[Rfam]
RNA sequence: CUUCAUUUUUGCAUCCUCGCGACUAAUGACAACCUUAAUCCCCGAUGGGACAAAGCCUCUCAUUAGCCGCGCGAACCUCUGCAACUGAAGAUCACACCCAGCAACAAUACAAUAGUUUGCACAAAAUUGCUGCCGCUGGUGUGAAAAAAGGGGCCAUAAAGGCCCCUCCCA
Numbered sequence: 001c002u003u004c005a006u007u008u009u010u011g012c013a014u015c016c017u018c019g020c021g022a023c024u025a026a027u028g029a030c031a032a033c034c035u036u037a038a039u040c041c042c043c044g045a046u047g048g049g050a051c052a053a054a055g056c057c058u059c060u061c062a063u064u065a066g067c068c069g070c071g072c073g074a075a076c077c078u079c080u081g082c083a084a085c086u087g088a089a090g091a092u093c094a095c096a097c098c099c100a101g102c103a104a105c106a107a108u109a110c111a112a113u114a115g116u117u118u119g120c121a122c123a124a125a126a127u128u129g130c131u132g133c134c135g136c137u138g139g140u141g142u143g144a145a146a147a148a149a150g151g152g153g154c155c156a157u158a159a160a161g162g163c164c165c166c167u168c169c170c171a
Stems, first nucleotide, its partner, number of pairs: 001090004011082003018073004023066007150166006

SraG RNA: a 171-nucleotide RNA sequence from Candidatus Erwinia dacicola.
It is annotated as a small RNA.
Rfam's curators write: This RNA was discovered in E. coli during a large scale screen. Evidence was found for specific cleavage of this RNA.
A search with the family's covariance model found it, with a score of 120 bits.